Shown here is a 58-nucleotide RNA from Dictyostelium discoideum, a member of the family "Class I RNA from Dictyostelium". The family's consensus secondary structure is taken from published work. Rfam classes the family as a non-coding RNA gene.
RNA sequence: GUUGACCUUACAGCAAAUCUUAAAGCUACUUCAUUCUAAGAAAAACUCCUGUCAACUG
Numbered sequence: 001g002u003u004g005a006c007c008u009u010a011c012a013g014c015a016a017a018u019c020u021u022a023a024a025g026c027u028a029c030u031u032c033a034u035u036c037u038a039a040g041a042a043a044a045a046c047u048c049c050u051g052u053c054a055a056c057u058g
Stems, first nucleotide, its partner, number of pairs: 001056006